[Rfam]
RNA sequence: UGCGAUGAGUCGAGAGGUCUGGUAGCAACCCUAAUUGCUGCCAUUAGACAUUUCGAAUGUGGGGCACGUUAACUCACCGGAUUGUGAGGUGCCCGGUUAAAGGGCGAAGUGGACAUCGC
Numbered sequence: 001u002g003c004g005a006u007g008a009g010u011c012g013a014g015a016g017g018u019c020u021g022g023u024a025g026c027a028a029c030c031c032u033a034a035u036u037g038c039u040g041c042c043a044u045u046a047g048a049c050a051u052u053u054c055g056a057a058u059g060u061g062g063g064g065c066a067c068g069u070u071a072a073c074u075c076a077c078c079g080g081a082u083u084g085u086g087a088g089g090u091g092c093c094c095g096g097u098u099a100a101a102g103g104g105c106g107a108a109g110u111g112g113a114c115a116u117c118g119c
Base pairs, nucleotide, nucleotide: 017049018048019047020046021042022041023040024039025038026037027036028035063093064092065091066090067089073088074087075086076085077084104119105118106117107116
RNA: Enterococcus sRNA 68 (Lacto-3 RNA)
Organism: Limosilactobacillus panis